[Rfam]
Nucleotides: 049
Stems, first nucleotide, its partner, number of pairs: 001020008036049005
Number, partner (000 for none) and nucleotide at each position: 001020u002019c003018c004017g005016g006015g007014g008013g009000a010000u011000g012000a013008c014007c015006c016005c017004c018003g019002g020001a021000c022000c023000c024000c025000c026000a027000g028000c029000a030000u031000c032000u033000u034000c035000c036049g037048g038047g039046g040045g041000a042000u043000g044000a045040c046039c047038c048037c049036c